A member of the RNA family "skipping-rope RNA", 83 nucleotides long.
[Rfam]
RNA sequence: GAUAAAUGAGGUCGGAAAUGGUUCCCGACACACUCGCAUAGACGAGUACCUGAGAUGCUGGAUACACCGCCCAGCCAUUUGCC
Numbered sequence: 001g002a003u004a005a006a007u008g009a010g011g012u013c014g015g016a017a018a019u020g021g022u023u024c025c026c027g028a029c030a031c032a033c034u035c036g037c038a039u040a041g042a043c044g045a046g047u048a049c050c051u052g053a054g055a056u057g058c059u060g061g062a063u064a065c066a067c068c069g070c071c072c073a074g075c076c077a078u079u080u081g082c083c
Base pairs, nucleotide, nucleotide: 001083003081004080005079006078007077008076011029012028013027014026015025019069020068021067022066031052032047033046034045035044057075058074059073060072061071